[Rfam]
RNA sequence: GUGCACGCUGAAUCGUAGGUCUCUCUUAUAAAAUAGAGCGAUCUUGAUCUAAAGUGCAUAGAUUAAGAGCUGUUUAAUCAGCAAGCAGCCAGACAACUGCUGAGAUGGAUCCACAGAUUAACGGCCUACUAAUGCUGUUUGUCUACUAAUGCCGUCUUACAUUU
Numbered sequence: 001g002u003g004c005a006c007g008c009u010g011a012a013u014c015g016u017a018g019g020u021c022u023c024u025c026u027u028a029u030a031a032a033a034u035a036g037a038g039c040g041a042u043c044u045u046g047a048u049c050u051a052a053a054g055u056g057c058a059u060a061g062a063u064u065a066a067g068a069g070c071u072g073u074u075u076a077a078u079c080a081g082c083a084a085g086c087a088g089c090c091a092g093a094c095a096a097c098u099g100c101u102g103a104g105a106u107g108g109a110u111c112c113a114c115a116g117a118u119u120a121a122c123g124g125c126c127u128a129c130u131a132a133u134g135c136u137g138u139u140u141g142u143c144u145a146c147u148a149a150u151g152c153c154g155u156c157u158u159a160c161a162u163u164u
Stems, first nucleotide, its partner, number of pairs: 002058005010049002013047003017044005023038004102158007119141003122137003
Shown here is a 164-nucleotide RNA from Lathyrus oleraceus, a member of the family "small nucleolar RNA snoR143". It is annotated as an H/ACA-box small nucleolar RNA. Gene Ontology terms of the family: nucleolus and RNA processing. The family's consensus secondary structure was predicted with RNAalifold.